[Rfam]
RNA sequence: GGCAAGAGUAGAAGCGUUCACCGUCCUGGUGCCCCAAGCUCAGAACGGCCGGAAAUUGCUCUUGAA
Numbered sequence: 001g002g003c004a005a006g007a008g009u010a011g012a013a014g015c016g017u018u019c020a021c022c023g024u025c026c027u028g029g030u031g032c033c034c035c036a037a038g039c040u041c042a043g044a045a046c047g048g049c050c051g052g053a054a055a056u057u058g059c060u061c062u063u064g065a066a
Stems, first nucleotide, its partner, number of pairs: 005062006015051001018053002021048004026043004

The record is a 66-nucleotide sequence from Caldimonas manganoxidans, which matches "Xanthine riboswitch aptamer (NMT1 RNA)" in Rfam.
Lineage of the source: Bacteria > Pseudomonadota > Betaproteobacteria > Caldimonas > Caldimonas manganoxidans.